Rfam assigns this 65-nucleotide RNA sequence from Eleutherodactylus coqui to the family "mir-155 microRNA precursor family".
RNA sequence: GCCUUAAUGCUAAUUGUGAUAGGGGUUUUACAUUGUGACUGACUCCUACAUGUUAGCAUUAAGAC
Numbered sequence: 001g002c003c004u005u006a007a008u009g010c011u012a013a014u015u016g017u018g019a020u021a022g023g024g025g026u027u028u029u030a031c032a033u034u035g036u037g038a039c040u041g042a043c044u045c046c047u048a049c050a051u052g053u054u055a056g057c058a059u060u061a062a063g064a065c
Base pairs, nucleotide, nucleotide: 004062005061006060007059008058009057010056011055012054013053014052020048021047022046023045025043026042027041
The base pairs follow the family's consensus structure, which was predicted with RNAalifold. Its family is annotated with RISC complex and miRNA-mediated post-transcriptional gene silencing in the Gene Ontology. Taxonomically the source falls in Eleutherodactylus (Eukaryota, Deuterostomia, Gnathostomata, Eleutherodactylidae).